The family of this 85-nucleotide RNA from Brevibacillus sp. WF146 is "c-di-GMP-I riboswitch aptamer". The family is grouped with related families in Rfam's "c-di-GMP_I riboswitch clan". It scores 89 bits against the family's covariance model. The family's consensus secondary structure is taken from published work. About the family: GEMM was predicted in a large-scale screen for bacterial structured RNA regulatory elements.
[Rfam]
RNA sequence: GUUCGUUAAUGGCAAACUUAUCGAAAGAUAAGGACGCAAAGCCACGGGUCUAAGGUUGUCAAACUAUGAUCGCCGGGUUGCCGAA
Numbered sequence: 001g002u003u004c005g006u007u008a009a010u011g012g013c014a015a016a017c018u019u020a021u022c023g024a025a026a027g028a029u030a031a032g033g034a035c036g037c038a039a040a041g042c043c044a045c046g047g048g049u050c051u052a053a054g055g056u057u058g059u060c061a062a063a064c065u066a067u068g069a070u071c072g073c074c075g076g077g078u079u080g081c082c083g084a085a
Base pairs, nucleotide, nucleotide: 012037013036017032018031019030020029021028022027040079041078042077043076045075046074047073048070049069050068055064056063057062